[Rfam]
RNA sequence: GUUCCUGAUGAUGUUGACUACUGUGAACCAUGCUAAUUCUGAUCUCUUUCUGUGAUUUAGAUUUCUAAUCUCUGAAGGGACA
Numbered sequence: 001g002u003u004c005c006u007g008a009u010g011a012u013g014u015u016g017a018c019u020a021c022u023g024u025g026a027a028c029c030a031u032g033c034u035a036a037u038u039c040u041g042a043u044c045u046c047u048u049u050c051u052g053u054g055a056u057u058u059a060g061a062u063u064u065c066u067a068a069u070c071u072c073u074g075a076a077g078g079g080a081c082a
Stems, first nucleotide, its partner, number of pairs: 001081005
About this RNA: This 82-nucleotide RNA from Dorcoceras hygrometricum belongs to the Rfam family "Small nucleolar RNA snoR53Y". By type it is a C/D-box small nucleolar RNA. Its family is annotated with RNA processing and nucleolus in the Gene Ontology. Its Rfam clan is "snoR53 clan". Pairs were carried over by alignment from the consensus structure, which was predicted with WAR. The organism belongs to Dorcoceras, within Eukaryota.